BsrG: a 252-nucleotide sequence from Alteribacillus persepolensis. The family's RNA type in Rfam is small RNA. NCBI's taxonomy places the organism under Bacteria, Bacillati, Bacillota, Caryophanales, Alteribacillus. Rfam links the family to the GO terms autolysis and toxin activity. The family's consensus secondary structure was predicted with WAR. Rfam's curators write: bsrE, bsrG and bsrH pair through intermolecular interactions with antisense sRNAs. They form type I toxin/antitoxin system that includes an mRNA encoding for a short, toxic peptide (bsrE, bsrG and bsrH) and an antitoxin that is comprised of an antisense RNA. bsrG encodes a 39-amino-acid toxin, and the 180 nucleotide antisense sRNA called SR4 acts as the antitoxin (they overlap by 123 nucleotides). SR4 interaction with the 3'UTR of bsrG RNA promotes bsrG degradation and inhibits its translation. On this family, see Jahn and Brantl, Nucleic Acids Res 2013: "One antitoxin--two functions: SR4 controls toxin mRNA decay and translation".

Nucleotides: 252
Stems, first nucleotide, its partner, number of pairs: 001225003005221001007219003011215001012196006019158002022155005029148003037061003041058004074133002077130004088101002112124001169181002197214001201210002230252009
Number, partner (000 for none) and nucleotide at each position: 001225u002224g003223c004000g005221a006000u007219a008218g009217c010000a011215u012196u013195g014194g015193u016192u017191a018000a019158c020157u021000g022155a023154a024153g025152g026151g027000u028000g029148g030147u031146u032000c033000g034000g035000u036000a037061u038060c039059a040000u041058c042057c043056c044055c045000a046000a047000a048000a049000g050000g051000g052000a053000a054000g055044g056043g057042g058041g059039u060038g061037g062000u063000g064000c065000c066000u067000a068000u069000a070000u071000g072000a073000u074133g075132a076000c077130a078129g079128u080127g081000u082000a083000u084000g085000a086000a087000g088101c089100g090000c091000u092000g093000a094000u095000g096000c097000u098000c099000a100089u101088g102000a103000u104000u105000u106000c107000a108000u109000u110000u111000g112124g113000a114000g115000c116000g117000u118000u119000a120000g121000u122000g123000g124112u125000g126000a127080u128079g129078c130077u131000c132075u133074u134000g135000u136000c137000a138000c139000a140000a141000a142000a143000a144000u145000a146031a147030a148029u149000c150000a151026c152025c153024c154023u155022u156000g157020a158019g159000u160000u161000g162000a163000c164000g165000g166000c167000u168000c169181g170180a171000g172000c173000g174000g175000g176000u177000g178000a179000u180170u181169u182000a183000u184000u185000u186000u187000c188000u189000c190000c191017u192016g193015g194014c195013c196012g197214g198000a199000c200000c201210c202209c203000g204000u205000u206000g207000a208000g209202g210201g211000a212000a213000c214197c215011a216000a217009g218008c219007u220000a221005u222000g223003g224002c225001a226000g227000g228000a229000c230252c231251g232250u233249a234248g235247g236246u237245g238244u239000u240000c241000g242000c243000c244238g245237c246236a247235c248234c249233u250232g251231c252230g